[Rfam]
RNA sequence: UGCAGCCCUGUCAAAUUCGAUCCCUGCCUCUUCCGUGGUGAGGAUCGGCCAAACGGCUGCCACAGCAACUUCUGUGCUGGCUGAGCCCUGUGUCCCCUUCCCGUGGGACUGGGGGGGAGAAAGUCACACCACGGACACAU
Numbered sequence: 001u002g003c004a005g006c007c008c009u010g011u012c013a014a015a016u017u018c019g020a021u022c023c024c025u026g027c028c029u030c031u032u033c034c035g036u037g038g039u040g041a042g043g044a045u046c047g048g049c050c051a052a053a054c055g056g057c058u059g060c061c062a063c064a065g066c067a068a069c070u071u072c073u074g075u076g077c078u079g080g081c082u083g084a085g086c087c088c089u090g091u092g093u094c095c096c097c098u099u100c101c102c103g104u105g106g107g108a109c110u111g112g113g114g115g116g117g118a119g120a121a122a123g124u125c126a127c128a129c130c131a132c133g134g135a136c137a138c139a140u
Stems, first nucleotide, its partner, number of pairs: 002060004018047006025040004074132003078128002086117004
Source information
This 140-nucleotide RNA from Antrostomus carolinensis belongs to the Rfam family "Small nucleolar RNA SNORA5". Rfam 15.1 lists 2,226 matches to the family in 629 species. The source organism's lineage runs through Eukaryota, Opisthokonta, Deuterostomia, Dipnotetrapodomorpha and Antrostomus. Rfam describes the family as follows. ACA5 is a member of the H/ACA class of snoRNA that guide the sites of modification of uridines to pseudouridines. It scores 65 bits against the family's covariance model. Its family is annotated with nucleolus and RNA processing in the Gene Ontology.